[Rfam]
RNA sequence: UUGUAACAUUGUUUCAAUACUCGGAUUCCCCUUCAAUACUUCUUGGAGGAUGUAGACCCGAGCUUCUGAUGCA
Numbered sequence: 001u002u003g004u005a006a007c008a009u010u011g012u013u014u015c016a017a018u019a020c021u022c023g024g025a026u027u028c029c030c031c032u033u034c035a036a037u038a039c040u041u042c043u044u045g046g047a048g049g050a051u052g053u054a055g056a057c058c059c060g061a062g063c064u065u066c067u068g069a070u071g072c073a
Stems, first nucleotide, its partner, number of pairs: 002073004
RNA: Small nucleolar RNA snoR60